[Rfam]
Record summary:
A member of the RNA family "chrB-a RNA" from Methylopila turkensis, 88 nucleotides long. The organism belongs to Methylopila, within Bacteria. A search with the family's covariance model found it, with a score of 49 bits. By type it is a cis-regulatory element.

RNA sequence: CCGCAGGGGUUUUCCGCGACGUCCCCUUCAGGCGAAAGCCCAAAGCUCGCGUCCACGAUCUCCUUCCCGAGGAGGCGGACGCCGCAUG
Numbered sequence: 001c002c003g004c005a006g007g008g009g010u011u012u013u014c015c016g017c018g019a020c021g022u023c024c025c026c027u028u029c030a031g032g033c034g035a036a037a038g039c040c041c042a043a044a045g046c047u048c049g050c051g052u053c054c055a056c057g058a059u060c061u062c063c064u065u066c067c068c069g070a071g072g073a074g075g076c077g078g079a080c081g082c083c084g085c086a087u088g
Stems, first nucleotide, its partner, number of pairs: 005027005049082006